[Rfam]
RNA sequence: GGUCUGUGAUGAAUAGUAAAAGGUCUGAUUAUCCCAAGACUUGCACUUCCAUGACCUUCUCUCCCAGCAGCUUCUCACCAGUCAUGGCACAGCCAUGCUGUGGCUGGCAGAGUGUUUGCUGACAGCUUGAGAUGUGCCCAGUUCAUGUCAGCCUGGAGUAUUGGGGACAUGGCUGGGAUCAGCAUCCUACAGUCCUGCUUCAAGGAGUUCGGGGUCUUGGAUGGUUCUAGCUGGACACGUGAUCUGACUUUUGUGCUGAGACC
Numbered sequence: 001g002g003u004c005u006g007u008g009a010u011g012a013a014u015a016g017u018a019a020a021a022g023g024u025c026u027g028a029u030u031a032u033c034c035c036a037a038g039a040c041u042u043g044c045a046c047u048u049c050c051a052u053g054a055c056c057u058u059c060u061c062u063c064c065c066a067g068c069a070g071c072u073u074c075u076c077a078c079c080a081g082u083c084a085u086g087g088c089a090c091a092g093c094c095a096u097g098c099u100g101u102g103g104c105u106g107g108c109a110g111a112g113u114g115u116u117u118g119c120u121g122a123c124a125g126c127u128u129g130a131g132a133u134g135u136g137c138c139c140a141g142u143u144c145a146u147g148u149c150a151g152c153c154u155g156g157a158g159u160a161u162u163g164g165g166g167a168c169a170u171g172g173c174u175g176g177g178a179u180c181a182g183c184a185u186c187c188u189a190c191a192g193u194c195c196u197g198c199u200u201c202a203a204g205g206a207g208u209u210c211g212g213g214g215u216c217u218u219g220g221a222u223g224g225u226u227c228u229a230g231c232u233g234g235a236c237a238c239g240u241g242a243u244c245u246g247a248c249u250u251u252u253g254u255g256c257u258g259a260g261a262c263c
Base pairs, nucleotide, nucleotide: 001263002262003261004260037245038244039243041241048221049220050219051218053216054215061207062206063205064204065121066120067119068118069117070116078107079106080105081104082103083102084101085100086099129187131186132185133184134183135182144171145170146169147168148167149166152163

This 263-nucleotide sequence from Tachuris rubrigastra belongs to the Rfam family "Small Cajal body specific RNA 6". It is annotated as a small Cajal body RNA. NCBI's taxonomy places the organism under Eukaryota, Chordata, Sauria, Aves, Tachuris. On this family, see Huttenhofer et al., EMBO J 2001: "RNomics: an experimental approach that identifies 201 candidates for novel, small, non-messenger RNAs in mouse".